[Rfam]
RNA sequence: AACCAACCGGUCGACCGGUUGGUUUGAUAAAAAUAAACCGGUCGACCGGUUCAAAUAAAGUGGUCGACCGAUUGGUUUGGUAAAGACCAACCGGUCGACCGGUUCACUUGGUAAAAGUAAACCGGUCGACCGGUUCAUAAUGGGGAAAAGUGAACCGGUCGACCGGUUCACUUGGUAAAAAUGAACCGGUCGACCGGUUC
Numbered sequence: 001a002a003c004c005a006a007c008c009g010g011u012c013g014a015c016c017g018g019u020u021g022g023u024u025u026g027a028u029a030a031a032a033a034u035a036a037a038c039c040g041g042u043c044g045a046c047c048g049g050u051u052c053a054a055a056u057a058a059a060g061u062g063g064u065c066g067a068c069c070g071a072u073u074g075g076u077u078u079g080g081u082a083a084a085g086a087c088c089a090a091c092c093g094g095u096c097g098a099c100c101g102g103u104u105c106a107c108u109u110g111g112u113a114a115a116a117g118u119a120a121a122c123c124g125g126u127c128g129a130c131c132g133g134u135u136c137a138u139a140a141u142g143g144g145g146a147a148a149a150g151u152g153a154a155c156c157g158g159u160c161g162a163c164c165g166g167u168u169c170a171c172u173u174g175g176u177a178a179a180a181a182u183g184a185a186c187c188g189g190u191c192g193a194c195c196g197g198u199u200c
Base pairs, nucleotide, nucleotide: 001024002023003022004021005020006019007018008017009016010015039101040100041099042098043097044096046094047093048092049091050090051089117171118170120168121167122165124163129159130158131157132156133155134153135152183200184199185198186197187196188195189194